RNA sequence: GGUCGGUCGCACGGGAGUCCGGGGAACGGGCUGAGAGGGAGCUGGGUCGCUCCGACCGUCGAACCUGAUCCGGGUCAUGCCGGCGCAGGGAGCGUGAGGACAUGGGAA
Numbered sequence: 001g002g003u004c005g006g007u008c009g010c011a012c013g014g015g016a017g018u019c020c021g022g023g024g025a026a027c028g029g030g031c032u033g034a035g036a037g038g039g040a041g042c043u044g045g046g047u048c049g050c051u052c053c054g055a056c057c058g059u060c061g062a063a064c065c066u067g068a069u070c071c072g073g074g075u076c077a078u079g080c081c082g083g084c085g086c087a088g089g090g091a092g093c094g095u096g097a098g099g100a101c102a103u104g105g106g107a108a
Stems, first nucleotide, its partner, number of pairs: 008094003011059004017031005038053005064089004070083004
The family of this 108-nucleotide RNA from Actinokineospora terrae is "TPP riboswitch aptamer (THI element)". Pairs were carried over by alignment from the consensus structure, which is taken from published work. Gene Ontology term of the family: thiamine pyrophosphate binding.